Rfam assigns this 128-nucleotide sequence from Camelus dromedarius to the family "Small nucleolar RNA SNORA25". Rfam classes the family as an H/ACA-box small nucleolar RNA.
RNA sequence: AGGUCAUUUCAAAGAGGGCUAAUGGGACCAAAUCCAGGUGCACUUAAUGCUGUGACCAAAGAUUGCGUUCUCCUUAGGACGUUAACAGUCACUCCAUAGUCCUAUGUUUUCCUGAUAGAGAUACAAGA
Dot-bracket structure: .((((((......(((.((...(..(........).)..)).)))......))))))...........((((...((((.....(.((..(((....))).)).)....))))....)))).......
Numbered sequence: 001a002g003g004u005c006a007u008u009u010c011a012a013a014g015a016g017g018g019c020u021a022a023u024g025g026g027a028c029c030a031a032a033u034c035c036a037g038g039u040g041c042a043c044u045u046a047a048u049g050c051u052g053u054g055a056c057c058a059a060a061g062a063u064u065g066c067g068u069u070c071u072c073c074u075u076a077g078g079a080c081g082u083u084a085a086c087a088g089u090c091a092c093u094c095c096a097u098a099g100u101c102c103u104a105u106g107u108u109u110u111c112c113u114g115a116u117a118g119a120g121a122u123a124c125a126a127g128a
Stems, first nucleotide, its partner, number of pairs: 002057006014045003018041002023037001026035001069121004076113004085105001087103002091100003
Its family is annotated with RNA processing and nucleolus in the Gene Ontology. A search with the family's covariance model found it, with a score of 86 bits. The organism belongs to Camelus, within Eukaryota. From the family's description: ACA25 is a member of the H/ACA class of snoRNA that guide the sites of modification of uridines to pseudouridines.